Record summary
The record is an 89-nucleotide sequence from Papaver somniferum, which matches "mir-160 microRNA precursor family" in Rfam.
RNA sequence: AUAUGCUUGGCUCCUCAUACGCCAUCUACAAAGAUCAUCAAAAAUUUUGAUGGAUUCUCUGGAAAUGGCAUACAGGGAGCCAGGCAUGG
Numbered sequence: 001a002u003a004u005g006c007u008u009g010g011c012u013c014c015u016c017a018u019a020c021g022c023c024a025u026c027u028a029c030a031a032a033g034a035u036c037a038u039c040a041a042a043a044a045u046u047u048u049g050a051u052g053g054a055u056u057c058u059c060u061g062g063a064a065a066u067g068g069c070a071u072a073c074a075g076g077g078a079g080c081c082a083g084g085c086a087u088g089g
Stems, first nucleotide, its partner, number of pairs: 002088005008082007018072002021069004027063001029061001
Its family is annotated with RISC complex and miRNA-mediated post-transcriptional gene silencing in the Gene Ontology. A reference for the family is Rhoades et al. (2002), "Prediction of plant microRNA targets", Cell. Rfam 15.1 lists 1,502 matches to the family in 247 species.